The record is a 52-nucleotide sequence from Niveibacterium umoris, which matches "COG3860 RNA" in Rfam. It scores 66 bits against the family's covariance model. The family's RNA type in Rfam is cis-regulatory element.

RNA sequence: CGGUCGGCAGAUCACCGAGGCGUCGCCCCCGCAAGGGAAGCUAAACCUGCCA
Numbered sequence: 001c002g003g004u005c006g007g008c009a010g011a012u013c014a015c016c017g018a019g020g021c022g023u024c025g026c027c028c029c030c031g032c033a034a035g036g037g038a039a040g041c042u043a044a045a046c047c048u049g050c051c052a
Base pairs, nucleotide, nucleotide: 001017002016003015004014028037029036030035